The family of this 125-nucleotide RNA from Halopenitus malekzadehii is "LAGLIDADG-2 RNA".
RNA sequence: AUAUGAGGCCCAGUUAGAGGCCUCACUAACCUGGGGAGGUUAGGUAUCCAUUUGGGUAACGACAGCACCCUUCUGGAGAGACGGCAUCCAGAGGCCGGGUUAUCAGCCCCGGUCGGAACCGUUUC
Numbered sequence: 001a002u003a004u005g006a007g008g009c010c011c012a013g014u015u016a017g018a019g020g021c022c023u024c025a026c027u028a029a030c031c032u033g034g035g036g037a038g039g040u041u042a043g044g045u046a047u048c049c050a051u052u053u054g055g056g057u058a059a060c061g062a063c064a065g066c067a068c069c070c071u072u073c074u075g076g077a078g079a080g081a082c083g084g085c086a087u088c089c090a091g092a093g094g095c096c097g098g099g100u101u102a103u104c105a106g107c108c109c110c111g112g113u114c115g116g117a118a119c120c121g122u123u124u125c
Stems, first nucleotide, its partner, number of pairs: 005024006011017001026043007047077004054071001055069002078125007093114007